[Rfam]
RNA sequence: GUAGGAUACGGUGACAUGUUUCCAACGACCCUGCCGGGUAAGCUGGUGGGUUGCGUGUGUGCUAUCAGUGGGGUUCUUAUGAUAGCACUACCAGUAUCUGUCGUGGCCAGCAAC
Number, nucleotide and partner (000 for none) at each position: 001g114002u113003a000004g111005g000006a000007u000008a000009c106010g000011g104012u000013g102014a101015c100016a099017u000018g097019u096020u000021u094022c000023c000024a000025a000026c000027g000028a000029c000030c000031c000032u000033g000034c000035c000036g000037g077038g076039u000040a074041a000042g000043c000044u000045g000046g000047u000048g000049g063050g062051u061052u000053g000054c000055g000056u000057g000058u000059g000060u000061g051062c050063u049064a000065u000066c000067a000068g000069u000070g000071g000072g000073g000074u040075u000076c038077u037078u000079a000080u000081g000082a000083u000084a000085g000086c000087a000088c000089u000090a000091c000092c000093a000094g021095u000096a019097u018098c000099u016100g015101u014102c013103g000104u011105g000106g009107c000108c000109a000110g000111c004112a000113a002114c001
Potassium channel RNA editing signal: a 114-nucleotide RNA sequence from Pocillopora damicornis. By type it is a cis-regulatory element. Pairs were carried over by alignment from the consensus structure, which is taken from published work. Rfam's curators write: This family represents a group of sequences related to the human potassium channel Kv1.1 hairpin element which directs the efficient modification of an adenosine to inosine by an adenosine deaminase acting on RNA (ADAR).